[Rfam]
RNA: U4atac minor spliceosomal RNA
Organism: Diceros bicornis
RNA sequence: ACCAUCCUUUCCUUGGGGCUGUGUGCUGUCCAGUGAGCAAACAGAGAGGGCAGUACUGCUAAUGCCUAACACCACACUCACAUCAACCAGAGCUCUGCUUUACCAUGGCACAAUUUUUAGAAAA
Numbered sequence: 001a002c003c004a005u006c007c008u009u010u011c012c013u014u015g016g017g018g019c020u021g022u023g024u025g026c027u028g029u030c031c032a033g034u035g036a037g038c039a040a041a042c043a044g045a046g047a048g049g050g051c052a053g054u055a056c057u058g059c060u061a062a063u064g065c066c067u068a069a070c071a072c073c074a075c076a077c078u079c080a081c082a083u084c085a086a087c088c089a090g091a092g093c094u095c096u097g098c099u100u101u102a103c104c105a106u107g108g109c110a111c112a113a114u115u116u117u118u119a120g121a122a123a124a
Stems, first nucleotide, its partner, number of pairs: 006018004021059003025054007038044001083108003089101005